Rfam assigns this 61-nucleotide RNA from Ziziphus jujuba to the family "Plastid-psbN 5UTR RNA". The family's RNA type in Rfam is cis-regulatory element.

RNA sequence: UGUGAUACCCAUCAAUGGAGUAGUUCCCCACCCAUAAGCUACUUUACUGUAUUCUAAAUUC
Numbered sequence: 001u002g003u004g005a006u007a008c009c010c011a012u013c014a015a016u017g018g019a020g021u022a023g024u025u026c027c028c029c030a031c032c033c034a035u036a037a038g039c040u041a042c043u044u045u046a047c048u049g050u051a052u053u054c055u056a057a058a059u060u061c
Base pairs, nucleotide, nucleotide: 017045018044019043020042021041022040023039024038025037
Plastid psbN is a non-coding RNA (ncRNA) recognised in plastids. It was reported as a conserved 11 stem-loop in the prime untranslated region (5UTR) of psbN genes. It has been reported that the motif is retained in a subset of mature transcripts in barley, which can suggests a possible role in transcript alternative 5 prime processing. The match comes from Rfam's covariance-model search (62 bits). The source organism's lineage runs through Eukaryota, Streptophytina, fabids, Paliureae and Ziziphus.